[Rfam]
RNA: Alphaproteobacteria transfer-messenger RNA
Organism: Stappia sp. ES.058
RNA sequence: CCCCUUUUCAUCCGCAAGGGCACUGCCUAUAUUGGGUGUGUCGGCGCAAGCUGACUAUGACGAUAAACGGACUGCGUAAUAAGCCUAUCGGACCCGGGGGCGGUACCCGGCGCCUCCACCCAAGCCCGUCUCGCGCAAGCGAAAACAGGCGGGCUUCGGGGGGGCGAAAUAGGAUCGACGAGGGUGUAAAGGCUUUUCUUUCGUCCGGCAUGGUUCCGCCGUUAUCGGGCCGUCUCAAUAGUUGCAAAUGACAACUAUGCUAUGGACAACGCUGUCGCUGCGUAAUGCAGUGCCGGUAGUCCACUAAGUCCUGCUGGUUAGCACCUUCAGGCGGGGUUCGGAGGCACCUGGCAACAGAAGCCUCCACU
Dot-bracket structure: .......................................(((((......)))))...(((((.....(((..((........(((.(((...(((((.......)))))(((((((..........................................)))))))............)))))).......))..)))..)))))[[[[.(((.(((]]]].....)))))).....................................................................................................[[[[..((((((]]]]..........))))))...